The record is a 97-nucleotide RNA from Dactylosporangium sucinum, which matches "Glycine riboswitch aptamer" in Rfam. The pairing is the family consensus, mapped onto this sequence.
RNA sequence: CGAGCCGUGGCGGGAGAGAUCCCGGCACCUGCGGGGCGCCGAAGGAGCAACAUCCCCUCCCCGGGAAACUCUCAGGCAACCGUACCGUCGCGGUCAG
Number, nucleotide and partner (000 for none) at each position: 001c000002g000003a000004g000005c000006c092007g091008u090009g089010g088011c087012g086013g085014g000015a000016g000017a000018g000019a000020u036021c035022c034023c033024g000025g000026c000027a000028c000029c000030u000031g000032c000033g023034g022035g021036g020037c000038g077039c076040c075041g073042a072043a000044g000045g071046a070047g069048c000049a000050a000051c064052a000053u000054c000055c000056c000057c000058u000059c000060c000061c000062c000063g000064g051065g000066a000067a000068a000069c047070u046071c045072u042073c041074a000075g040076g039077c038078a000079a000080c000081c000082g000083u000084a000085c013086c012087g011088u010089c009090g008091c007092g006093g000094u000095c000096a000097g000

Its family is annotated with glycine biosynthetic process in the Gene Ontology.